About this RNA: RNase MRP: a 275-nucleotide sequence from Cairina moschata. RNase MRP is an enzymatically active ribonucleoprotein with two distinct roles in eukaryotes. In mitochondria it plays a direct role in the initiation of mitochondrial DNA replication. In the nucleus it is involved in precursor rRNA processing, where it cleaves the internal transcribed spacer 1 between 18S and 5.8S rRNAs. Despite distinct functions, RNase MRP has been shown to be evolutionarily related to RNase P. Like eukaryotic RNase P, RNase MRP is not catalytically active without associated protein subunits. The base pairs follow the family's consensus structure, which is taken from published work.
RNA sequence: GGACGCCCUGAAGACCUGCUCUCUAGGCCACGCACGGAGGACGCCGUUCCUCAGGGGCCGCGCGCCCGCCUAGGGGAAAGUCCCCGGACGCGGGGCAGAGAGUGCCGCGCGCCGCCGGCGCCAGCCCCCGCCCCGCCGCCCGCGCAGCGCCGCCGAGACGCCCCCGGGCAGAGCGGGAGGGCGCGGGGCGGGCCCUCGUCACGGCCACAGGCACGCAGGUAGUGCGCAGCCAGCAGCGGGCGCACCAACAGCACGGGGCUCACUCUCAGGGCGUC
Numbered sequence: 001g002g003a004c005g006c007c008c009u010g011a012a013g014a015c016c017u018g019c020u021c022u023c024u025a026g027g028c029c030a031c032g033c034a035c036g037g038a039g040g041a042c043g044c045c046g047u048u049c050c051u052c053a054g055g056g057g058c059c060g061c062g063c064g065c066c067c068g069c070c071u072a073g074g075g076g077a078a079a080g081u082c083c084c085c086g087g088a089c090g091c092g093g094g095g096c097a098g099a100g101a102g103u104g105c106c107g108c109g110c111g112c113c114g115c116c117g118g119c120g121c122c123a124g125c126c127c128c129c130g131c132c133c134c135g136c137c138g139c140c141c142g143c144g145c146a147g148c149g150c151c152g153c154c155g156a157g158a159c160g161c162c163c164c165c166g167g168g169c170a171g172a173g174c175g176g177g178a179g180g181g182c183g184c185g186g187g188g189c190g191g192g193c194c195c196u197c198g199u200c201a202c203g204g205c206c207a208c209a210g211g212c213a214c215g216c217a218g219g220u221a222g223u224g225c226g227c228a229g230c231c232a233g234c235a236g237c238g239g240g241c242g243c244a245c246c247a248a249c250a251g252c253a254c255g256g257g258g259c260u261c262a263c264u265c266u267c268a269g270g271g272c273g274u275c
Stems, first nucleotide, its partner, number of pairs: 002275010014220006022074007037052005079260002082258004094106004109121004125192003131188006138182004150176004160169003222245006